[Rfam]
RNA sequence: CGUUAUGGCUAGGACAAUGGUGGGCCGAUGAAGCGUGUCAGAUCUGGAAGGAAGCAGCACUAAGUUGGUGCCGCCAUGUGUCUGAAUUUAAUAUAAGCC
Number, nucleotide and partner (000 for none) at each position: 001c000002g000003u000004u093005a092006u091007g000008g089009c000010u085011a000012g083013g082014a081015c078016a000017a077018u076019g075020g074021u073022g072023g000024g069025c068026c067027g066028a065029u064030g000031a000032a000033g000034c000035g060036u059037g058038u057039c000040a000041g000042a000043u052044c051045u050046g000047g000048a000049a000050g045051g044052a043053a000054g000055c000056a000057g038058c037059a036060c035061u000062a000063a000064g029065u028066u027067g026068g025069u024070g000071c000072c022073g021074c020075c019076a018077u017078g015079u000080g000081u014082c013083u012084g000085a010086a000087u000088u000089u008090a000091a006092u005093a004094u000095a000096a000097g000098c000099c000